[Rfam]
RNA sequence: GUGGCAGCUUGGUUGUGAUAUGUGUGAUGAUACCUUCUGCAAUCCUCUGGAAUGACACCACAUAUAUGACAGCUGAACUGCUAC
Numbered sequence: 001g002u003g004g005c006a007g008c009u010u011g012g013u014u015g016u017g018a019u020a021u022g023u024g025u026g027a028u029g030a031u032a033c034c035u036u037c038u039g040c041a042a043u044c045c046u047c048u049g050g051a052a053u054g055a056c057a058c059c060a061c062a063u064a065u066a067u068g069a070c071a072g073c074u075g076a077a078c079u080g081c082u083a084c
Base pairs, nucleotide, nucleotide: 002083003082004081005080006079007078015070016069018067019066020065021064022063024061025060026059029056031054032053037050038049
RNA: mir-489 microRNA precursor family
Organism: Microtus ochrogaster